A member of the RNA family "U12 minor spliceosomal RNA" from Nannospalax galili, 150 nucleotides long. The family is grouped with related families in Rfam's "U2 clan". It scores 114 bits against the family's covariance model. Taxonomically the source falls in Nannospalax (Eukaryota, Craniata, Euarchontoglires, Rodentia).
[Rfam]
RNA sequence: CUGCCUUAAACUUAUGAGUAAGGAAAAUAAAGAUUUGGGGUGAUGCUCGAGUCCACACUGCUAAUGUGAGACGAAUUUUAGAGCAGGUUAAGGUUGCCCAUAAGGACACUCCCCUACUUUGUGGGAUGCCUGAGUGAAGCCAUCUGCCUG
Numbered sequence: 001c002u003g004c005c006u007u008a009a010a011c012u013u014a015u016g017a018g019u020a021a022g023g024a025a026a027a028u029a030a031a032g033a034u035u036u037g038g039g040g041u042g043a044u045g046c047u048c049g050a051g052u053c054c055a056c057a058c059u060g061c062u063a064a065u066g067u068g069a070g071a072c073g074a075a076u077u078u079u080a081g082a083g084c085a086g087g088u089u090a091a092g093g094u095u096g097c098c099c100a101u102a103a104g105g106a107c108a109c110u111c112c113c114c115u116a117c118u119u120u121g122u123g124g125g126a127u128g129c130c131u132g133a134g135u136g137a138a139g140c141c142a143u144c145u146g147c148c149u150g
Stems, first nucleotide, its partner, number of pairs: 004023005032053008054070001056068003084150005091145004096140002101133001103131003109125003113121001